[Rfam]
RNA sequence: GCAAUUAAAGUAUUGGGCUCAUUUUUGUUUGGUCGUAAUGUGACUGAAUGGAAGAGUGCAUUGGCUAGAUUGAGA
Numbered sequence: 001g002c003a004a005u006u007a008a009a010g011u012a013u014u015g016g017g018c019u020c021a022u023u024u025u026u027g028u029u030u031g032g033u034c035g036u037a038a039u040g041u042g043a044c045u046g047a048a049u050g051g052a053a054g055a056g057u058g059c060a061u062u063g064g065c066u067a068g069a070u071u072g073a074g075a
Base pairs, nucleotide, nucleotide: 002072003071004070005069006068009066010065011064014060015059017057018056019055020054023053024052025051026050027049028048029047030046031045032044033043034042035041
RNA: MIR5241 microRNA precursor family
Organism: Medicago truncatula